The record is an 80-nucleotide RNA sequence, which matches "Proteo-phage-1 RNA" in Rfam. By type it is a small RNA. The family's consensus secondary structure is taken from published work.

RNA sequence: GCCCCGCCCGGGGGCGCCUCGUGCAAGCCGGGCUGCGGAUAAUUCGGCGAGUGCCGCAUCAUUGAAUAACCCCGAAAGCC
Dot-bracket structure: [[[[..(((((]]]]((...)).....))))).(((((....[[[[[......))))).............]]]]]....